[Rfam]
RNA sequence: UAAUACACUGAGUGGCCAGAUUAUUAUGAUCUCUGAACGCAUAAUAAUCAGGCCACUCAGUGUAUAU
Numbered sequence: 001u002a003a004u005a006c007a008c009u010g011a012g013u014g015g016c017c018a019g020a021u022u023a024u025u026a027u028g029a030u031c032u033c034u035g036a037a038c039g040c041a042u043a044a045u046a047a048u049c050a051g052g053c054c055a056c057u058c059a060g061u062g063u064a065u066a067u
Stems, first nucleotide, its partner, number of pairs: 004064014019049010
RNA: mir-9256 microRNA precursor family
Organism: Eptesicus fuscus